RNA sequence: AAGCUGUGAUGACGGUUGCGCUAAUCGUGAUGGAAGGGUCCAUCUCAGCUGUCCGAUUACAAAGCGCUUCUGAGCUU
Number, nucleotide and partner (000 for none) at each position: 001a077002a076003g075004c074005u000006g000007u000008g000009a000010u000011g000012a000013c000014g000015g000016u000017u000018g000019c000020g000021c000022u000023a000024a000025u000026c000027g000028u000029g000030a000031u000032g000033g000034a000035a000036g000037g000038g000039u000040c000041c000042a000043u000044c000045u000046c000047a000048g000049c000050u000051g000052u000053c000054c000055g000056a000057u000058u000059a000060c000061a000062a000063a000064g000065c000066g000067c000068u000069u000070c000071u000072g000073a000074g004075c003076u002077u001
RNA: small nucleolar RNA snoR114
Organism: Gossypium mustelinum